[Rfam]
The family of this 122-nucleotide RNA sequence from Streptomyces clavuligerus is "Streptomyces-metH RNA". Rfam classes the family as a small RNA. Rfam's curators put it in the seed alignment. NCBI's taxonomy places the organism under Bacteria, Actinomycetota, Kitasatosporales, Streptomycetaceae, Streptomyces.
RNA sequence: GUGUCCGUCCACCGGGACACCCCGGCCGCCCCGCGCGCGGCCCGGUUAGGCUGGGGCCGUGCGCCCUCCCGCCGGAGGACGCAAAGCCGACAGCCGUCGCAUCCCAGGGAGCACAUUCCAUG
Numbered sequence: 001g002u003g004u005c006c007g008u009c010c011a012c013c014g015g016g017a018c019a020c021c022c023c024g025g026c027c028g029c030c031c032c033g034c035g036c037g038c039g040g041c042c043c044g045g046u047u048a049g050g051c052u053g054g055g056g057c058c059g060u061g062c063g064c065c066c067u068c069c070c071g072c073c074g075g076a077g078g079a080c081g082c083a084a085a086g087c088c089g090a091c092a093g094c095c096g097u098c099g100c101a102u103c104c105c106a107g108g109g110a111g112c113a114c115a116u117u118c119c120a121u122g
Base pairs, nucleotide, nucleotide: 060083061082062081063080066077067076068075069074086100087099089098090097091096